The record is a 182-nucleotide sequence from Paenibacillus phyllosphaerae, which matches "Group II catalytic intron D1-D4-5" in Rfam.
RNA sequence: CUCAACUUUACAAUCGAGGAUGGGAAUGACGGAACCAUGUUUCCCGAAACCAUCCCGCCAAUACUCCUGCAUGCGUCACGUCUGACAGGGCAUGGGGUGUGAAGUACAGGUAGAGUCGGCAGAACGGCGGCUGAAGCCAUCUCCGGAAAGGUAUGCCAACGGAUAUGCCGCGCGGCUGAAAA
Number, nucleotide and partner (000 for none) at each position: 001c000002u000003c000004a000005a000006c000007u000008u000009u000010a000011c000012a000013a000014u000015c000016g000017a000018g055019g054020a053021u052022g051023g050024g000025a000026a000027u000028g000029a000030c000031g045032g044033a000034a042035c000036c000037a000038u000039g000040u000041u000042u034043c000044c032045c031046g000047a000048a000049a000050c023051c022052a021053u020054c019055c018056c174057g173058c172059c000060a000061a000062u000063a000064c000065u000066c110067c109068u108069g107070c101071a100072u099073g098074c097075g000076u095077c094078a093079c000080g091081u090082c089083u088084g000085a000086c000087a000088g083089g082090g081091c080092a000093u078094g077095g076096g000097g074098u073099g072100u071101g070102a000103a000104g000105u000106a000107c069108a068109g067110g066111u000112a000113g000114a000115g000116u000117c170118g169119g168120c167121a166122g000123a000124a000125c161126g160127g000128c000129g157130g156131c146132u145133g144134a000135a000136g000137c000138c000139a000140u000141c000142u000143c000144c133145g132146g131147a000148a000149a000150g000151g000152u000153a000154u000155g000156c130157c129158a000159a000160c126161g125162g000163a000164u000165a000166u121167g120168c119169c118170g117171c000172g058173c057174g056175g000176c000177u000178g000179a000180a000181a000182a000
Taxonomically the source falls in Paenibacillus (Bacteria, Bacillati, Bacilli, Caryophanales). A reference for the family is Bonen and Vogel (2001), "The ins and outs of group II introns", Trends Genet. Rfam links the family to the GO term Group II intron splicing.